RNA sequence: UGGUCAUAUACCAAGGCUUUUAGGAUAUGUGGUUCCUGACUUGCUGUGGACAUGACCAAAAAUUAAAACCCAUCCUAAUGAGUCUUUUCAGUUGUACUGAUGUCUGAUUCAUUAGGAACAUUU
Numbered sequence: 001u002g003g004u005c006a007u008a009u010a011c012c013a014a015g016g017c018u019u020u021u022a023g024g025a026u027a028u029g030u031g032g033u034u035c036c037u038g039a040c041u042u043g044c045u046g047u048g049g050a051c052a053u054g055a056c057c058a059a060a061a062a063u064u065a066a067a068a069c070c071c072a073u074c075c076u077a078a079u080g081a082g083u084c085u086u087u088u089c090a091g092u093u094g095u096a097c098u099g100a101u102g103u104c105u106g107a108u109u110c111a112u113u114a115g116g117a118a119c120a121u122u123u
Stems, first nucleotide, its partner, number of pairs: 003056005011049003029044004074116004081109004
Dot-bracket structure: ..(((((...(((...............((((........))))..)))..))))).................((((...((((.....................))))...)))).......

Shown here is a 123-nucleotide sequence from Anabarilius grahami, a member of the family "Small nucleolar RNA SNORA32". The family's consensus secondary structure was predicted with RNAfold. Taxonomically the source falls in Anabarilius (Eukaryota, Craniata, Teleostei, Osteoglossocephalai). Rfam 15.1 lists 615 matches to the family in 234 species. ACA32 is a member of the H/ACA class of snoRNA that guide the sites of modification of uridines to pseudouridines. It is annotated as an H/ACA-box small nucleolar RNA.